[Rfam]
Overview
Guanidine-II riboswitch aptamer (mini-ykkC): a 49-nucleotide RNA sequence from Alkalisalibacterium limincola.
RNA sequence: UGCCCGGGACGACCCGGGUGCCGCAUGUCUUUGCUCGGGGACGACCCCA
Numbered sequence: 001u002g003c004c005c006g007g008g009a010c011g012a013c014c015c016g017g018g019u020g021c022c023g024c025a026u027g028u029c030u031u032u033g034c035u036c037g038g039g040g041a042c043g044a045c046c047c048c049a
Stems, first nucleotide, its partner, number of pairs: 001020008037048004